[Rfam]
RNA: small nucleolar RNA snoR117
Organism: Setaria italica
RNA sequence: GGCCGAUGACUGGAGAUCUUUUGUCCGUACCAUCUGAUUUUUCUGAUGAGUCGCUUUUGCCAAAUUUUCUGAGGCCC
Numbered sequence: 001g002g003c004c005g006a007u008g009a010c011u012g013g014a015g016a017u018c019u020u021u022u023g024u025c026c027g028u029a030c031c032a033u034c035u036g037a038u039u040u041u042u043c044u045g046a047u048g049a050g051u052c053g054c055u056u057u058u059g060c061c062a063a064a065u066u067u068u069c070u071g072a073g074g075c076c077c
Stems, first nucleotide, its partner, number of pairs: 001076004